Shown here is a 57-nucleotide RNA from Dendrobium nobile, a member of the family "Plastid-rps18 3UTR RNA". The source organism's lineage runs through Eukaryota, Euphyllophyta, Spermatophyta, Mesangiospermae and Dendrobium. It is annotated as a cis-regulatory element. A search with the family's covariance model found it, with a score of 69 bits.
RNA sequence: CGCAAGUAUUUUACGAUUCAGAAGCAAUUGUCUCUUGUACAGAUUGUGGAUGAAUAG
Numbered sequence: 001c002g003c004a005a006g007u008a009u010u011u012u013a014c015g016a017u018u019c020a021g022a023a024g025c026a027a028u029u030g031u032c033u034c035u036u037g038u039a040c041a042g043a044u045u046g047u048g049g050a051u052g053a054a055u056a057g
Base pairs, nucleotide, nucleotide: 018037020035021034022033024031025030